Overview
RT-16 RNA: a 167-nucleotide RNA.
RNA sequence: UCCUGGAGAGUUUUAUGUUUCCCUGAGCAAGAAACGUGAAAUAGGACUACACGCCAAUUUACUAGCACAUCAUUUAGAUUUAUUUUAAGUCAUAAAAUUCAGCUUUGACAAAAUUGGAAAAGCGGUGAAAGAAAAUUAAAUUUUCAAAAGUAAAUUGGCUAUCUUAG
Numbered sequence: 001u002c003c004u005g006g007a008g009a010g011u012u013u014u015a016u017g018u019u020u021c022c023c024u025g026a027g028c029a030a031g032a033a034a035c036g037u038g039a040a041a042u043a044g045g046a047c048u049a050c051a052c053g054c055c056a057a058u059u060u061a062c063u064a065g066c067a068c069a070u071c072a073u074u075u076a077g078a079u080u081u082a083u084u085u086u087a088a089g090u091c092a093u094a095a096a097a098u099u100c101a102g103c104u105u106u107g108a109c110a111a112a113a114u115u116g117g118a119a120a121a122g123c124g125g126u127g128a129a130a131g132a133a134a135a136u137u138a139a140a141u142u143u144u145c146a147a148a149a150g151u152a153a154a155u156u157g158g159c160u161a162u163c164u165u166a167g
Stems, first nucleotide, its partner, number of pairs: 001046004010042012053159010070132002073129003102123005109116002
The sequence is in the family's curated seed alignment.